[Rfam]
RNA: Pyrrolysine insertion sequence mttB
RNA sequence: UUAUCGGAUGCCAAGAUUGCCGAUGCCCAGGCCGGCUAUGAAUCAAUGAUGACUUUACUGGCGACCAGUGCAACAGGCAUUAACUUUGUACUGCAUACAG
Dot-bracket structure: ........................(......)((...........................)).............(.((..............)).)..